[Rfam]
Nucleotides: 073
Stems, first nucleotide, its partner, number of pairs: 008018004040058007
Number, partner (000 for none) and nucleotide at each position: 001000g002000a003000g004000c005000c006000g007000u008018g009017c010016c011015u012000u013000u014000c015011a016010g017009g018008c019000a020000u021000c022000c023000u024000c025000u026000c027000c028000u029000a030000a031000a032000a033000a034000c035000u036000u037000u038000u039000c040058g041057g042056c043055c044054g045053g046052g047000c048000u049000u050000g051000u052046c053045c054044c055043g056042g057041c058040c059000u060000u061000u062000u063000u064000u065000u066000u067000g068000u069000c070000u071000u072000c073000g
Makes More Granules Regulator RNA (mmgR): a 73-nucleotide RNA sequence from Sphingomonas sp. S-NIH.Pt15_0812. Rfam classes the family as a small RNA. Rfam describes the family as follows. SuhB later renamed mmgR (makes more granules regulator) was a putative non-coding RNA found multiple times in the Agrobacterium tumefaciens genome and related alpha-proteobacteria. Other non-coding RNAs uncovered in the same analysis include: speF, ybhL, metA, and serC.Several studies inSinorhizobium meliloti showed that suhB element is indeed a non-coding RNA:firstly it was detected on Northern blot and called Sm8RNA, secondly in an RNAseq study referred to as SmelC689.The mutant phenotype's (strain lacking the small RNA) cytoplasm contains higher content of polyhydroxybutyrate (PBH)storage granules than wild type strain. Rfam 15.1 lists 1,791 matches to the family in 918 species. The match comes from Rfam's covariance-model search (47 bits).